Rfam assigns this 172-nucleotide part of an RNA from Trichuris suis to the family "Eukaryotic small subunit ribosomal RNA". The family has 90 seed sequences and 75,755 matches in Rfam 15.1.

[Rfam]
RNA sequence: CCGCCCGUCGCUACUACCGAUUGGAUGAUUUAGUGAGGCCUUUGGACCGAUGCCGCCGGUGUUCGGCCCGGUGGUUGAACCACGGCGUCGGGAAGCUGGCCGAACCAAACCAUCUAGAGGAAGUAAAAGUCGUAACAAGGUUUCCGUAGGUGAACCUGCGGAAGGAUCAUUA
Numbered sequence: 001c002c003g004c005c006c007g008u009c010g011c012u013a014c015u016a017c018c019g020a021u022u023g024g025a026u027g028a029u030u031u032a033g034u035g036a037g038g039c040c041u042u043u044g045g046a047c048c049g050a051u052g053c054c055g056c057c058g059g060u061g062u063u064c065g066g067c068c069c070g071g072u073g074g075u076u077g078a079a080c081c082a083c084g085g086c087g088u089c090g091g092g093a094a095g096c097u098g099g100c101c102g103a104a105c106c107a108a109a110c111c112a113u114c115u116a117g118a119g120g121a122a123g124u125a126a127a128a129g130u131c132g133u134a135a136c137a138a139g140g141u142u143u144c145c146g147u148a149g150g151u152g153a154a155c156c157u158g159c160g161g162a163a164g165g166a167u168c169a170u171u172a
Base pairs, nucleotide, nucleotide: 001139003136006132007131009129012125013124014123015122017120018119021116023115024114025113026112027111029109030108031107033105034104037101038100039099040098043095047091048090049089050088051087052086053085054084055083062079063078064077065076066075067074141164142163143162144161145160146159147158148157149156150155
Rfam's curators put it in the seed alignment. NCBI's taxonomy places the organism under Eukaryota, Opisthokonta, Nematoda, Trichinellida, Trichuris.